[Rfam]
Rfam assigns this 102-nucleotide sequence from Bacillus sp. T33-2 to the family "SAM riboswitch aptamer (S box leader)". The source organism's lineage runs through Bacteria, Bacillati, Bacilli, Bacillaceae and Bacillus.

RNA sequence: UUCUUAUCAAGAGAGGCGGAGGGACUGGCCCGAUGAAGCCCGGCAACCGGUUAAUGAACACGGUGCUAAUUCCAUCAGAGUGAAUGCUCUGAGAGAUAAGGA
Numbered sequence: 001u002u003c004u005u006a007u008c009a010a011g012a013g014a015g016g017c018g019g020a021g022g023g024a025c026u027g028g029c030c031c032g033a034u035g036a037a038g039c040c041c042g043g044c045a046a047c048c049g050g051u052u053a054a055u056g057a058a059c060a061c062g063g064u065g066c067u068a069a070u071u072c073c074a075u076c077a078g079a080g081u082g083a084a085u086g087c088u089c090u091g092a093g094a095g096a097u098a099a100g101g102a
Stems, first nucleotide, its partner, number of pairs: 001102008013041001015040003021031003026074003042067004047063002049059001051057002071094001076091006